[Rfam]
RNA sequence: GCAGACUCACUCUGUUCUUUGCUGUUCUCUCCAGUGUGGAACUUUUUCUGUCUGCUACAUAAUGGUCAGAGUACAUCAACGACUGGCUUUUUUCUGAAACGCUGGUGCUGAUAUGUUCUGCGACACAUGC
Numbered sequence: 001g002c003a004g005a006c007u008c009a010c011u012c013u014g015u016u017c018u019u020u021g022c023u024g025u026u027c028u029c030u031c032c033a034g035u036g037u038g039g040a041a042c043u044u045u046u047u048c049u050g051u052c053u054g055c056u057a058c059a060u061a062a063u064g065g066u067c068a069g070a071g072u073a074c075a076u077c078a079a080c081g082a083c084u085g086g087c088u089u090u091u092u093u094c095u096g097a098a099a100c101g102c103u104g105g106u107g108c109u110g111a112u113a114u115g116u117u118c119u120g121c122g123a124c125a126c127a128u129g130c
Stems, first nucleotide, its partner, number of pairs: 001055006014042005020036001022034003067120006076111003080107002084104004
Dot-bracket structure: ((((((.......(((((.(.(((.......))).).))))).......))))))...........((((((...(((.((..((((.............)))).)).)))...))))))..........
RNA: Small nucleolar RNA SNORA77
Organism: Merluccius polli